[Rfam]
RNA sequence: ACCGACAAUUGAAAUAGUGUUCGUAUAAUUCCGGGGAUAGGCUCGGAAGUCUCUACGUGAUCACCGAAAUGAUCUCUCUACGAAACGGGAAAAAGCGAGC
Number, nucleotide and partner (000 for none) at each position: 001a000002c000003c000004g000005a000006c000007a000008a000009u000010u000011g000012a000013a000014a000015u000016a000017g000018u000019g000020u084021u083022c082023g081024u080025a079026u000027a000028a000029u048030u047031c046032c045033g044034g043035g042036g000037a000038u000039a000040g000041g000042c035043u034044c033045g032046g031047a030048a029049g000050u000051c000052u000053c000054u000055a000056c000057g076058u000059g074060a073061u072062c071063a070064c000065c000066g000067a000068a000069a000070u063071g062072a061073u060074c059075u000076c057077u000078c000079u025080a024081c023082g022083a021084a020085a000086c000087g000088g000089g000090a000091a000092a000093a000094a000095g000096c000097g000098a000099g000100c000
RNA: Purine riboswitch aptamer